[Rfam]
RNA sequence: CGCUCAUCCAGAGGGACUGAGGGAACGGCCCUGCGAAGUCCCGGCAACCGCCACGCCGACCACGGCGCGGAAAGGUGCCAAUUCCGCCCGGACCGAGAGUCGGCCCGGGAAGAUGAGGG
Numbered sequence: 001c002g003c004u005c006a007u008c009c010a011g012a013g014g015g016a017c018u019g020a021g022g023g024a025a026c027g028g029c030c031c032u033g034c035g036a037a038g039u040c041c042c043g044g045c046a047a048c049c050g051c052c053a054c055g056c057c058g059a060c061c062a063c064g065g066c067g068c069g070g071a072a073a074g075g076u077g078c079c080a081a082u083u084c085c086g087c088c089c090g091g092a093c094c095g096a097g098a099g100u101c102g103g104c105c106c107g108g109g110a111a112g113a114u115g116a117g118g119g
Stems, first nucleotide, its partner, number of pairs: 001119001003117006013042005021031003026086003043079004048075002051070002083111001088108004093103003
Shown here is a 119-nucleotide RNA sequence from Nocardioides flavescens, a member of the family "SAM riboswitch aptamer (S box leader)". It scores 77 bits against the family's covariance model. The organism belongs to Nocardioides, within Bacteria.